[Rfam]
Nucleotides: 350
Base pairs, nucleotide, nucleotide: 001346002345003344004343005342007340008339009338010337011335012315013314014313015312016311017310018309020041021040022039023038024037025036026035027034028033046333047332048331050330051329052328053327054326055220056219057218058217062252063251064250065249067216068215069214070213071212072086073085074084075083076082087101088099089098090097091096102211103210107209108208109205110204111203123150124149125146126145127144131142132141133140134139158176159175160174161173162172163171177200178198179197180196181195183192184191185190224272225271226270227269234263235262236261237260238259239258243257244256245255246254247253279298280297281296282295283294284293285292286291
Number, partner (000 for none) and nucleotide at each position: 001346a002345g003344a004343g005342u006000g007340g008339a009338u010337u011335g012315g013314a014313c015312a016311g017310u018309c019000g020041c021040u022039g023038u024037c025036g026035c027034g028033c029000a030000a031000u032000a033028g034027c035026g036025c037024g038023g039022u040021g041020g042000a043000g044000g045000a046333a047332a048331g049000u050330c051329c052328g053327g054326g055220c056219u057218c058217c059000a060000u061000a062252g063251g064250g065249c066000a067216g068215a069214g070213u071212g072086c073085c074084a075083g076082g077000u078000a079000a080000c081000g082076c083075c084074u085073g086072g087101g088099a089098g090097g091096c092000g093000c094000g095000a096091g097090c098089c099088u100000a101087c102211g103210g104000a105000a106000a107209g108208u109205g110204c111203c112000a113000c114000a115000g116000a117000a118000a119000a120000u121000a122000a123150c124149c125146g126145c127144c128000u129000a130000a131142g132141c133140g134139c135000a136000a137000c138000a139134g140133c141132g142131c143000c144127g145126g146125u147000a148000a149124g150123g151000g152000u153000g154000a155000a156000a157000a158176g159175g160174u161173g162172c163171g164000g165000u166000a167000a168000g169000a170000g171163c172162g173161c174160a175159c176158c177200g178198c179197a180196c181195g182000g183192c184191u185190g186000g187000c188000a189000a190185c191184a192183g193000u194000g195181c196180g197179u198178g199000g200177c201000u202000a203111g204110g205109u206000a207000a208108a209107c210103c211102c212071c213070a214069c215068u216067c217058g218057g219056a220055g221000c222000a223000a224272g225271a226270c227269c228000a229000a230000a231000u232000a233000g234263g235262a236261a237260u238259c239258c240000a241000u242000u243257g244256g245255c246254g247253c248000g249065g250064c251063c252062c253247g254246c255245g256244u257243u258239g259238g260237a261236u262235u263234c264000g265000g266000g267000u268000a269227g270226g271225u272224c273000g274000c275000u276000u277000g278000a279298g280297g281296c282295g283294u284293a285292c286291a287000g288000u289000g290000a291286u292285g293284u294283g295282c296281g297280u298279c299000c300000c301000a302000g303000a304000g305000g306000a307000a308000u309018g310017g311016c312015u313014g314013u315012c316000c317000u318000c319000g320000a321000c322000a323000g324000a325000a326054c327053c328052c329051g330050g331048c332047u333046u334000a335011u336000a337010g338009a339008u340007c341000g342005a343004c344003u345002c346001u347000c348000c349000c350000a